A member of the RNA family "DUF3800-XI RNA", 47 nucleotides long. Rfam's curators put it in the seed alignment. The base pairs follow the family's consensus structure, which is taken from published work. From the family's description: Actinobacteria, Firmicutes, Proteobacteria, Spirochaetes (1 example).
RNA sequence: GGGACUGGUCGAAAGACCCGGGUCCUACCACGGCGGGGAGUUACUCC
Numbered sequence: 001g002g003g004a005c006u007g008g009u010c011g012a013a014a015g016a017c018c019c020g021g022g023u024c025c026u027a028c029c030a031c032g033g034c035g036g037g038g039a040g041u042u043a044c045u046c047c
Stems, first nucleotide, its partner, number of pairs: 001026006007018004